Shown here is an 86-nucleotide RNA from Triplophysa rosa, a member of the family "mir-146 microRNA precursor family". The base pairs follow the family's consensus structure, which was predicted with WAR. Rfam 15.1 lists 1,617 matches to the family in 642 species. Taxonomically the source falls in Triplophysa (Eukaryota, Eumetazoa, Bilateria, Craniata). A reference for the family is Cai et al. (2005), "Kaposi's sarcoma-associated herpesvirus expresses an array of viral microRNAs in latently infected cells", Proc Natl Acad Sci U S A.
RNA sequence: CGGAGGUCUUGGCUUUGAGAACUGAAUUCCAAGGGCGUCUCUAUAUUCAGCCCACGGAGUUCAGUUCUUAAGCUUGGAUACUUGUG
Numbered sequence: 001c002g003g004a005g006g007u008c009u010u011g012g013c014u015u016u017g018a019g020a021a022c023u024g025a026a027u028u029c030c031a032a033g034g035g036c037g038u039c040u041c042u043a044u045a046u047u048c049a050g051c052c053c054a055c056g057g058a059g060u061u062c063a064g065u066u067c068u069u070a071a072g073c074u075u076g077g078a079u080a081c082u083u084g085u086g
Base pairs, nucleotide, nucleotide: 008077009076011074012073013072018068019067020066021065022064023063024062025061033053034052035051036050